The family of this 71-nucleotide RNA sequence from Lottia gigantea is "mir-10 microRNA precursor family".
RNA sequence: UAAUAUAAACCCGUAGAUCCGAACUUGUGAUAAAAUCUGACGCAAGCUUGUUUCUAGGGGUCCUAUAUUGG
Numbered sequence: 001u002a003a004u005a006u007a008a009a010c011c012c013g014u015a016g017a018u019c020c021g022a023a024c025u026u027g028u029g030a031u032a033a034a035a036u037c038u039g040a041c042g043c044a045a046g047c048u049u050g051u052u053u054c055u056a057g058g059g060g061u062c063c064u065a066u067a068u069u070g071g
Base pairs, nucleotide, nucleotide: 002069003068004067005066006065007064010060011059012058015055016054017053020050021049022048024046025045026044027043028042029041
Description
The family's consensus secondary structure was predicted with PFOLD. Gene Ontology terms of the family: miRNA-mediated post-transcriptional gene silencing and RISC complex. It scores 59 bits against the family's covariance model. The organism belongs to Lottia, within Eukaryota.